[Rfam]
RNA sequence: GAGUUUUUGAUUGUGGCGAGACUAAAAAGUUUAGCUUUGUAGUCGUAGGGAAACCAACAUGCCCGCAGCGUACUUUAUUGUAUGUGAGGGGCGGGGUUUUAACCGGCCUAGUAGUCACAGUCAUAAGACCCGAAGCCGGUCGAUCUAACCCAGGGUAGGAUGAAGUCGCUCUUACGAGUGAUGGAGGUCCGAAGGGUUGUUGUCGUGCAAAACACUCCCGUAACCUUGGGCUAGUGGUGAAAGGCCAAUCAAGGCCGGUGACAGCUGGUU
Number, nucleotide and partner (000 for none) at each position: 001g000002a000003g000004u000005u126006u125007u000008u123009g122010a121011u120012u119013g118014u117015g116016g115017c114018g000019a000020g044021a043022c042023u041024a000025a000026a038027a037028a036029g035030u000031u000032u000033a000034g000035c029036u028037u027038u026039g000040u000041a023042g022043u021044c020045g000046u000047a000048g055049g054050g000051a000052a000053a000054c049055c048056a000057a000058c000059a000060u000061g092062c091063c090064c089065g000066c000067a000068g085069c084070g083071u082072a081073c080074u000075u000076u000077a000078u000079u000080g073081u072082a071083u070084g069085u068086g000087a000088g000089g064090g063091g062092c061093g000094g000095g108096g107097u106098u105099u000100u000101a000102a000103c000104c000105g098106g097107c096108c095109u000110a000111g000112u000113a000114g017115u016116c015117a014118c013119a012120g011121u010122c009123a008124u000125a006126a005127g000128a000129c268130c267131c000132g265133a000134a000135g000136c258137c257138g256139g255140u254141c253142g000143a000144u000145c234146u233147a232148a000149c230150c229151c228152a227153g226154g225155g224156u222157a000158g190159g189160a188161u187162g000163a000164a000165g182166u181167c180168g179169c178170u177171c176172u000173u000174a000175c000176g171177a170178g169179u168180g167181a166182u165183g000184g000185a000186g000187g161188u160189c159190c158191g000192a000193a000194g219195g218196g217197u000198u000199g215200u214201u000202g213203u212204c000205g000206u000207g000208c000209a000210a000211a000212a203213c202214a200215c199216u000217c196218c195219c194220g000221u000222a156223a000224c155225c154226u153227u152228g151229g150230g149231c000232u147233a146234g145235u000236g246237g245238u244239g000240a000241a000242a000243g000244g238245c237246c236247a000248a000249u000250c000251a000252a000253g141254g140255c139256c138257g137258g136259u000260g000261a000262c000263a000264g000265c132266u000267g130268g129269u000270u000

Shown here is a 270-nucleotide part of an RNA from Methanobacterium paludis, a member of the family "Archaeal large subunit ribosomal RNA".